[Rfam]
RNA sequence: CUCUCGUGGUUAGCAGUUAUAAGCUCAUGGGCUUAUUUCCAGUACAGAGAGACGUAAAGGGGUCUAUUUCCAUGCCGACAAGGCAAAAAAUAUAUUAGUUAUGUAUGCCGAUAGUAAUCUUUUGAUGAAAUUCGCAAAACAUAAC
Numbered sequence: 001c002u003c004u005c006g007u008g009g010u011u012a013g014c015a016g017u018u019a020u021a022a023g024c025u026c027a028u029g030g031g032c033u034u035a036u037u038u039c040c041a042g043u044a045c046a047g048a049g050a051g052a053c054g055u056a057a058a059g060g061g062g063u064c065u066a067u068u069u070c071c072a073u074g075c076c077g078a079c080a081a082g083g084c085a086a087a088a089a090a091u092a093u094a095u096u097a098g099u100u101a102u103g104u105a106u107g108c109c110g111a112u113a114g115u116a117a118u119c120u121u122u123u124g125a126u127g128a129a130a131u132u133c134g135c136a137a138a139a140c141a142u143a144a145c
Base pairs, nucleotide, nucleotide: 003049004048005047009045010044016039019036020035021034022033023032024031025030074084075083076082098145099144100143101142102141103140104139106137109134110133111132117126118125
The record is a 145-nucleotide RNA sequence, which matches "RT-14 RNA" in Rfam. The base pairs follow the family's consensus structure, which is taken from published work. The family's RNA type in Rfam is small RNA.